[Rfam]
RNA sequence: UAGAUAGAUUAUUAUAUUCGACUGUAUUCACGGUGUGAAACAGGGGAUUACCAUGUUUUUAAACAGAAAGUGAACCAAUUAACAUAAUAGACUCUU
Numbered sequence: 001u002a003g004a005u006a007g008a009u010u011a012u013u014a015u016a017u018u019c020g021a022c023u024g025u026a027u028u029c030a031c032g033g034u035g036u037g038a039a040a041c042a043g044g045g046g047a048u049u050a051c052c053a054u055g056u057u058u059u060u061a062a063a064c065a066g067a068a069a070g071u072g073a074a075c076c077a078a079u080u081a082a083c084a085u086a087a088u089a090g091a092c093u094c095u096u
Base pairs, nucleotide, nucleotide: 002095003094004093009090010089011088012087013086014085015084017082018081020080021079023077024076027074028073029072030071031070034065035064036063037059038058039057040056041055042054